[Rfam]
RNA sequence: UUGGUACCCUUAUUCAAUAGAACGGUGUGAACCAGGUCAGGACAGGAAUGUAGCAGCCUUAAGCAUUUAGUUUUAUGUGAGUAAGGGUACCAAAGG
Numbered sequence: 001u002u003g004g005u006a007c008c009c010u011u012a013u014u015c016a017a018u019a020g021a022a023c024g025g026u027g028u029g030a031a032c033c034a035g036g037u038c039a040g041g042a043c044a045g046g047a048a049u050g051u052a053g054c055a056g057c058c059u060u061a062a063g064c065a066u067u068u069a070g071u072u073u074u075a076u077g078u079g080a081g082u083a084a085g086g087g088u089a090c091c092a093a094a095g096g
Base pairs, nucleotide, nucleotide: 004090005089006088007087008086009085010084011083012082013081014080015077017076018075019074020073021072022071024067025066026065027064028063034059035058036057037056042051043050044049
This 96-nucleotide RNA from Turicibacter sp. H121 belongs to the Rfam family "Bacterial small signal recognition particle RNA".
The family's RNA type in Rfam is non-coding RNA gene.